Rfam assigns this 72-nucleotide sequence from Nomascus leucogenys to the family "mir-3689 microRNA precursor family". The source organism's lineage runs through Eukaryota, Teleostomi, Haplorrhini, Hominoidea and Nomascus. Rfam links the family to the GO terms RISC complex and miRNA-mediated post-transcriptional gene silencing. It scores 69 bits against the family's covariance model.

[Rfam]
RNA sequence: GGGAGGUGUGAUAUCGUGCUUCCUGUGGAGGUGUGAUCCGCAAUCCCUGGGAGGUGUGAUCCCGUGCUCACU
Numbered sequence: 001g002g003g004a005g006g007u008g009u010g011a012u013a014u015c016g017u018g019c020u021u022c023c024u025g026u027g028g029a030g031g032u033g034u035g036a037u038c039c040g041c042a043a044u045c046c047c048u049g050g051g052a053g054g055u056g057u058g059a060u061c062c063c064g065u066g067c068u069c070a071c072u
Stems, first nucleotide, its partner, number of pairs: 001071001003069003014059005020053006027047002030044001032042004